[Rfam]
RNA sequence: AGUGAUGGUAGAGGAGCGAAAACCAUUAGUACAGUCUCGGAGGUUAAUGAGGGCCUAAGAAGAGAAGAGAAAGGGGAAUUCGCCGAAGUGUAAGAAAGGCUCAUUUUUUCUUAUGCUGGACCUAUGUUGAAAAAGCAUAGGGCUGUCACAUACCUACACCCAGAUGGUAUGUGGAGAACUAUCUCACGU
Numbered sequence: 001a002g003u004g005a006u007g008g009u010a011g012a013g014g015a016g017c018g019a020a021a022a023c024c025a026u027u028a029g030u031a032c033a034g035u036c037u038c039g040g041a042g043g044u045u046a047a048u049g050a051g052g053g054c055c056u057a058a059g060a061a062g063a064g065a066a067g068a069g070a071a072a073g074g075g076g077a078a079u080u081c082g083c084c085g086a087a088g089u090g091u092a093a094g095a096a097a098g099g100c101u102c103a104u105u106u107u108u109u110c111u112u113a114u115g116c117u118g119g120a121c122c123u124a125u126g127u128u129g130a131a132a133a134a135g136c137a138u139a140g141g142g143c144u145g146u147c148a149c150a151u152a153c154c155u156a157c158a159c160c161c162a163g164a165u166g167g168u169a170u171g172u173g174g175a176g177a178a179c180u181a182u183c184u185c186a187c188g189u
Stems, first nucleotide, its partner, number of pairs: 007183005016083005023076002035065004087117012118144002121141008146174009
The family of this 189-nucleotide RNA sequence from Halalkalibacter nanhaiisediminis is "Lysine riboswitch aptamer". Lineage of the source: Bacteria > Bacillota > Caryophanales > Bacillaceae > Halalkalibacter.